[Rfam]
RNA sequence: UGGUAGAUGCACCCUGAUAAUUACCCCUAGGCUCAACGGUUUGGGGGUUUUCUUU
Numbered sequence: 001u002g003g004u005a006g007a008u009g010c011a012c013c014c015u016g017a018u019a020a021u022u023a024c025c026c027c028u029a030g031g032c033u034c035a036a037c038g039g040u041u042u043g044g045g046g047g048u049u050u051u052c053u054u055u
Stems, first nucleotide, its partner, number of pairs: 002013003024047009
A member of the RNA family "Nitrogen stress-induced RNA 1" from Moorena producens, 55 nucleotides long. The match comes from Rfam's covariance-model search (52 bits). For this family Rfam cites "Heterocyst-specific transcription of NsiR1, a non-coding RNA encoded in a tandem array of direct repeats in cyanobacteria" (Ionescu et al., J Mol Biol, 2010). The organism belongs to Moorena producens, within Bacteria. The family has 17 seed sequences and 962 matches in Rfam 15.1. It is annotated as a small RNA.